[Rfam]
Nucleotides: 159
Base pairs, nucleotide, nucleotide: 001023002022003021004020005019006018007017008016034050035049036048037047057138058137059136085097086096105120106119107118108117109116
Number, partner (000 for none) and nucleotide at each position: 001023u002022g003021c004020a005019g006018g007017c008016u009000u010000u011000c012000c013000a014000u015000c016008a017007g018006c019005c020004u021003g022002c023001a024000a025000u026000a027000c028000u029000g030000a031000a032000g033000a034050g035049g036048c037047a038000c039000a040000c041000c042000a043000u044000c045000a046000u047037u048036g049035c050034c051000g052000g053000a054000a055000g056000u057138g058137c059136g060000g061000u062000u063000g064000g065000g066000a067000u068000g069000a070000u071000c072000c073000c074000c075000u076000c077000c078000a079000a080000u081000c082000c083000a084000u085097g086096g087000c088000a089000g090000a091000c092000a093000a094000a095000g096086c097085c098000g099000g100000a101000u102000c103000c104000a105120u106119g107118c108117u109116c110000u111000u112000g113000g114000c115000a116109g117108g118107g119106c120105g121000u122000u123000g124000a125000u126000c127000c128000a129000a130000a131000c132000c133000c134000u135000g136059c137058g138057c139000a140000a141000u142000a143000a144000g145000g146000c147000g148000c149000g150000a151000u152000c153000g154000a155000a156000g157000c158000a159000c